[Rfam]
RNA sequence: UCCGAUAUGGUGUACUGGUUAGCAUAUCUGGCUUUCACCCAGAAGAUCCGGGUUCGAUUCCCGGUAUCGGAA
Numbered sequence: 001u002c003c004g005a006u007a008u009g010g011u012g013u014a015c016u017g018g019u020u021a022g023c024a025u026a027u028c029u030g031g032c033u034u035u036c037a038c039c040c041a042g043a044a045g046a047u048c049c050g051g052g053u054u055c056g057a058u059u060c061c062c063g064g065u066a067u068c069g070g071a072a
Stems, first nucleotide, its partner, number of pairs: 001071007010025004027043005048064005